[Rfam]
RNA sequence: AAGUGAUGGUGGGGGCAUUAAAGUUGGUAUCCCUUGAACCGCUCCCAUGCCUCGUGAAAGGUCUCCCCGACAUUUUGGCUAAAGCUUGCGAUCGGUAGUCUUUUGAUGU
Numbered sequence: 001a002a003g004u005g006a007u008g009g010u011g012g013g014g015g016c017a018u019u020a021a022a023g024u025u026g027g028u029a030u031c032c033c034u035u036g037a038a039c040c041g042c043u044c045c046c047a048u049g050c051c052u053c054g055u056g057a058a059a060g061g062u063c064u065c066c067c068c069g070a071c072a073u074u075u076u077g078g079c080u081a082a083a084g085c086u087u088g089c090g091a092u093c094g095g096u097a098g099u100c101u102u103u104u105g106a107u108g109u
Base pairs, nucleotide, nucleotide: 001109003107004106005104006103057074058073060071
Shown here is a 109-nucleotide RNA from Striga hermonthica, a member of the family "Plant small nucleolar RNA R71". Pairs were carried over by alignment from the consensus structure, which was predicted with PFOLD. For this family Rfam cites "Plant snoRNAs: functional evolution and new modes of gene expression" (Brown et al., Trends Plant Sci, 2003).